Shown here is a 181-nucleotide RNA sequence from Caloramator australicus, a member of the family "6S / SsrS RNA". About the family: E. coli 6S RNA was the first non coding RNA to be sequenced, but its function was unknown until recently. NCBI's taxonomy places the organism under Bacteria, Bacillati, Clostridia, Clostridiaceae, Caloramator australicus. For this family Rfam cites "6S RNA regulates E. coli RNA polymerase activity" (Wassarman and Storz, Cell, 2000).
RNA sequence: AAGAGCCUGCCGUAUUCGCCAGGAUGGAUUAUGUAUUGAGCCAACACCUACGAAAAGGGAGCCCGGGCUCCUCAUGUGGAAUGUAGGCCUACUAAAGGUAGGGAACAAGAAGCAUGGGGGAGGGCACCCACCUGCUGAGAGCAGGUUCAAUCAUUCCAUCCAGCGAUAUGGUGGGUUUUUG
Numbered sequence: 001a002a003g004a005g006c007c008u009g010c011c012g013u014a015u016u017c018g019c020c021a022g023g024a025u026g027g028a029u030u031a032u033g034u035a036u037u038g039a040g041c042c043a044a045c046a047c048c049u050a051c052g053a054a055a056a057g058g059g060a061g062c063c064c065g066g067g068c069u070c071c072u073c074a075u076g077u078g079g080a081a082u083g084u085a086g087g088c089c090u091a092c093u094a095a096a097g098g099u100a101g102g103g104a105a106c107a108a109g110a111a112g113c114a115u116g117g118g119g120g121a122g123g124g125c126a127c128c129c130a131c132c133u134g135c136u137g138a139g140a141g142c143a144g145g146u147u148c149a150a151u152c153a154u155u156c157c158a159u160c161c162a163g164c165g166a167u168a169u170g171g172u173g174g175g176u177u178u179u180u181g
Base pairs, nucleotide, nucleotide: 002179003178004177005176006175007174008173009172010171011170012169013168014167015166017165018164019163032153033152035151037149038148039147040146041145042144057129058128059127061125062124063123064122068119071118072117073116074115075114076113077112083106084105088102089101090100091099092098